[Rfam]
RNA: THF (Tetrahydrofolate) riboswitch aptamer
Organism: Candidatus Izimoplasma sp. HR1
RNA sequence: AUCAGAGUAACUAUUUCGCGUUAAGUGCUUUACCAUGGGAAGUCGGGUAAUGACGAACACUAUCGUGGCGGUGAAAUAGUGCGUCCGCUGAA
Numbered sequence: 001a002u003c004a005g006a007g008u009a010a011c012u013a014u015u016u017c018g019c020g021u022u023a024a025g026u027g028c029u030u031u032a033c034c035a036u037g038g039g040a041a042g043u044c045g046g047g048u049a050a051u052g053a054c055g056a057a058c059a060c061u062a063u064c065g066u067g068g069c070g071g072u073g074a075a076a077u078a079g080u081g082c083g084u085c086c087g088c089u090g091a092a
Base pairs, nucleotide, nucleotide: 002091003090004089005088010080011079012078013077014076015075016074017073018072019070020069021068025054026053028052030050031049032048033047034046038086039085040084042082058067059066060065